The record is a 370-nucleotide part of an RNA from Methanogenium marinum, which matches "Archaeal large subunit ribosomal RNA" in Rfam. Rfam 15.1 lists 2,955 matches to the family in 1,139 species. The source organism's lineage runs through Archaea, Methanobacteriota, Methanomicrobia, Methanomicrobiaceae and Methanogenium. On this family, see Cannone et al., BMC Bioinformatics 2002: "The comparative RNA web (CRW) site: an online database of comparative sequence and structure information for ribosomal, intron, and other RNAs".

[Rfam]
RNA sequence: ACUAGUAGAAGCAUAGUUAGGUGAGAAUCCUAACCGCCGAAGGGGCUAGGUUUCCUCGGCAAUGUUCGUCAGCCGAGGGUUAGUCGGUCCUAAGUUGUACCGUAAUUCGAGUACAGCGAAAGGGAAACAGGUUAAUAUUCCUGUACCAUCUGAUUGUAGUUAACUUCGGUUAACCCUGACGUUUCUGGAUAUGUUUUGCAGGGCUGUCGCCCUGUCUAAUCGUAUAAGCUCUUGGAGAACCGUAAUGGUGAGAAUUGAGUGAAAGCGUGAUGGAGAAAUAAAGCAAACUCCUGGAACCCGUGAAAAGGGAAUCAGAUGUCCGUACCGAGAUCUGACACAGGUGCCCCUAGCUGAGAAGGCUAAGGCGUGU
Numbered sequence: 001a002c003u004a005g006u007a008g009a010a011g012c013a014u015a016g017u018u019a020g021g022u023g024a025g026a027a028u029c030c031u032a033a034c035c036g037c038c039g040a041a042g043g044g045g046c047u048a049g050g051u052u053u054c055c056u057c058g059g060c061a062a063u064g065u066u067c068g069u070c071a072g073c074c075g076a077g078g079g080u081u082a083g084u085c086g087g088u089c090c091u092a093a094g095u096u097g098u099a100c101c102g103u104a105a106u107u108c109g110a111g112u113a114c115a116g117c118g119a120a121a122g123g124g125a126a127a128c129a130g131g132u133u134a135a136u137a138u139u140c141c142u143g144u145a146c147c148a149u150c151u152g153a154u155u156g157u158a159g160u161u162a163a164c165u166u167c168g169g170u171u172a173a174c175c176c177u178g179a180c181g182u183u184u185c186u187g188g189a190u191a192u193g194u195u196u197u198g199c200a201g202g203g204c205u206g207u208c209g210c211c212c213u214g215u216c217u218a219a220u221c222g223u224a225u226a227a228g229c230u231c232u233u234g235g236a237g238a239a240c241c242g243u244a245a246u247g248g249u250g251a252g253a254a255u256u257g258a259g260u261g262a263a264a265g266c267g268u269g270a271u272g273g274a275g276a277a278a279u280a281a282a283g284c285a286a287a288c289u290c291c292u293g294g295a296a297c298c299c300g301u302g303a304a305a306a307g308g309g310a311a312u313c314a315g316a317u318g319u320c321c322g323u324a325c326c327g328a329g330a331u332c333u334g335a336c337a338c339a340g341g342u343g344c345c346c347c348u349a350g351c352u353g354a355g356a357a358g359g360c361u362a363a364g365g366c367g368u369g370u
Stems, first nucleotide, its partner, number of pairs: 016034006035367004043346004049326002054078006063071002085322003089123002094117006101109002127144005147318008175309003181297005187291003192285005198215005221267003229259003239249003274279001332341002348362004